[Rfam]
RNA: U7 small nuclear RNA
RNA sequence: UAGUAUUAUAGCUCUUUUAUAAUUUGUCUAGCAGAUUUUCUGGUUUUCACCAUGAAAGAAAUGUCAUU
Numbered sequence: 001u002a003g004u005a006u007u008a009u010a011g012c013u014c015u016u017u018u019a020u021a022a023u024u025u026g027u028c029u030a031g032c033a034g035a036u037u038u039u040c041u042g043g044u045u046u047u048c049a050c051c052a053u054g055a056a057a058g059a060a061a062u063g064u065c066a067u068u
Base pairs, nucleotide, nucleotide: 034065035064036063037061038060039059040058041057042051043050044049